[Rfam]
The family of this 172-nucleotide RNA from Fontibacillus phaseoli is "Group II catalytic intron D1-D4-3". The match comes from Rfam's covariance-model search (114 bits).
RNA sequence: UCCGCCGCGGGGGCGGAAUCUGAAAUAAGCCAGAGGCAAACCCUCUGUCUGACGAACAGAAAUCACAUAUAAGGCAUGCUGGGACGGACGAGCUUGCAUACCAAAGCAAGUUUAAUACUGCCCGAAUCCCAGAAUGUAAAUGUAGCAGUUGGAUGAGGGGAAGGUUAUCGCU
Numbered sequence: 001u002c003c004g005c006c007g008c009g010g011g012g013g014c015g016g017a018a019u020c021u022g023a024a025a026u027a028a029g030c031c032a033g034a035g036g037c038a039a040a041c042c043c044u045c046u047g048u049c050u051g052a053c054g055a056a057c058a059g060a061a062a063u064c065a066c067a068u069a070u071a072a073g074g075c076a077u078g079c080u081g082g083g084a085c086g087g088a089c090g091a092g093c094u095u096g097c098a099u100a101c102c103a104a105a106g107c108a109a110g111u112u113u114a115a116u117a118c119u120g121c122c123c124g125a126a127u128c129c130c131a132g133a134a135u136g137u138a139a140a141u142g143u144a145g146c147a148g149u150u151g152g153a154u155g156a157g158g159g160g161a162a163g164g165u166u167a168u169c170g171c172u
Stems, first nucleotide, its partner, number of pairs: 001017006029172001031170001033168001036165002041159005047150001049148003063145001065143004074137003079132006086113004092107004